[Rfam]
RNA sequence: AAUAGUUUAAGAGAGCUUCCUUCAGUCCACUCAUGGAUGGGUAGAGGGUUUGAAUUAUCUGCUGACUCAUUCAUUCAAACACAAUAGAAUUGGCAUCAUGGUAUGCUAUUGUGAAUGUGUGAAUGAUGCAGGAGGUAAAAUUCAUCCUUUUCUUGUCUUUGCUUGGACUGAAGGGAGCUCCCUUUUGGUAUUUA
Numbered sequence: 001a002a003u004a005g006u007u008u009a010a011g012a013g014a015g016c017u018u019c020c021u022u023c024a025g026u027c028c029a030c031u032c033a034u035g036g037a038u039g040g041g042u043a044g045a046g047g048g049u050u051u052g053a054a055u056u057a058u059c060u061g062c063u064g065a066c067u068c069a070u071u072c073a074u075u076c077a078a079a080c081a082c083a084a085u086a087g088a089a090u091u092g093g094c095a096u097c098a099u100g101g102u103a104u105g106c107u108a109u110u111g112u113g114a115a116u117g118u119g120u121g122a123a124u125g126a127u128g129c130a131g132g133a134g135g136u137a138a139a140a141u142u143c144a145u146c147c148u149u150u151u152c153u154u155g156u157c158u159u160u161g162c163u164u165g166g167a168c169u170g171a172a173g174g175g176a177g178c179u180c181c182c183u184u185u186u187g188g189u190a191u192u193u194a
Stems, first nucleotide, its partner, number of pairs: 013180008023170007036157001059134002062131003068125004076117001
RNA: MIR159 microRNA precursor family